A member of the RNA family "Fluoride riboswitch aptamer (crcB RNA motif)" from an Alicyclobacillaceae bacterium, 63 nucleotides long. For this family Rfam cites "Widespread genetic switches and toxicity resistance proteins for fluoride" (Baker et al., Science, 2012). The family's consensus secondary structure is taken from published work. The organism belongs to Alicyclobacillaceae, within Bacteria.
RNA sequence: AUUGAGGAUGGCGAUGGAGUUCGCCGAUAACCGUCUUUAUGGACUGAUGACUCCUACUAGUCG
Numbered sequence: 001a002u003u004g005a006g007g008a009u010g011g012c013g014a015u016g017g018a019g020u021u022c023g024c025c026g027a028u029a030a031c032c033g034u035c036u037u038u039a040u041g042g043a044c045u046g047a048u049g050a051c052u053c054c055u056a057c058u059a060g061u062c063g
Base pairs, nucleotide, nucleotide: 010025011024012023013022016054017053018052019051020050021049033044034043035042036041